[Rfam]
Small nucleolar RNA snoR99: a 108-nucleotide RNA from Ipomoea nil. Rfam links the family to the GO terms nucleolus and RNA processing.
RNA sequence: UUGCUUAAGGGAAGAAUGAUGUCCCAGAUAUGAGACUUCCAUCCUUUUCACUUUGUCAGCACUGUCUUUUUUUGUUUCCGGUGCUGAUCAUUGUUGGGUGGUACAUAU
Numbered sequence: 001u002u003g004c005u006u007a008a009g010g011g012a013a014g015a016a017u018g019a020u021g022u023c024c025c026a027g028a029u030a031u032g033a034g035a036c037u038u039c040c041a042u043c044c045u046u047u048u049c050a051c052u053u054u055g056u057c058a059g060c061a062c063u064g065u066c067u068u069u070u071u072u073u074g075u076u077u078c079c080g081g082u083g084c085u086g087a088u089c090a091u092u093g094u095u096g097g098g099u100g101g102u103a104c105a106u107a108u
Stems, first nucleotide, its partner, number of pairs: 039101005055088010
Rfam 15.1 lists 733 matches to the family in 222 species. For this family Rfam cites "Experimental RNomics: identification of 140 candidates for small non-messenger RNAs in the plant Arabidopsis thaliana" (Marker et al., Curr Biol, 2002).